Description
Rfam assigns this 73-nucleotide sequence from Callosobruchus maculatus to the family "mir-965 microRNA precursor family". The source organism's lineage runs through Eukaryota, Eumetazoa, Panarthropoda, Aparaglossata and Callosobruchus. A search with the family's covariance model found it, with a score of 61 bits. Rfam links the family to the GO terms RISC complex and miRNA-mediated post-transcriptional gene silencing.

RNA sequence: GCCUGGAGGGUGAGAAGUUGUACUGCUCAUGGUUUAUUUGUACUCAUAAGCGUAUAGCUUUUCCCCUUCAGUU
Numbered sequence: 001g002c003c004u005g006g007a008g009g010g011u012g013a014g015a016a017g018u019u020g021u022a023c024u025g026c027u028c029a030u031g032g033u034u035u036a037u038u039u040g041u042a043c044u045c046a047u048a049a050g051c052g053u054a055u056a057g058c059u060u061u062u063c064c065c066c067u068u069c070a071g072u073u
Stems, first nucleotide, its partner, number of pairs: 003071005010065001012063001014061002018057005026050002029047003